The family of this 105-nucleotide sequence from Burkholderiales bacterium JOSHI_001 is "Glycine riboswitch aptamer". A search with the family's covariance model found it, with a score of 48 bits. Pairs were carried over by alignment from the consensus structure. Lineage of the source: Bacteria > Pseudomonadati > Pseudomonadota > Betaproteobacteria > Burkholderiales.
Nucleotides: 105
Base pairs, nucleotide, nucleotide: 009097010096011095012094013093020048021047022046023045050085051084052083053081054080057079058078059077063073064072
Number, partner (000 for none) and nucleotide at each position: 001000c002000u003000g004000c005000c006000g007000c008000c009097g010096c011095c012094a013093g014000g015000a016000g017000a018000g019000u020048g021047u022046g023045g024000a025000g026000c027000c028000c029000g030000c031000g032000a033000a034000g035000c036000u037000g038000c039000g040000g041000g042000c043000a044000g045023c046022c047021a048020c049000c050085g051084c052083c053081g054080a055000a056000g057079g058078c059077g060000c061000a062000g063073g064072g065000c066000g067000c068000a069000a070000g071000c072064c073063c074000g075000a076000a077059c078058g079057c080054u081053c082000a083052g084051g085050c086000a087000c088000a089000a090000g091000g092000a093013c094012u095011g096010g097009c098000a099000a100000g101000c102000g103000c104000u105000u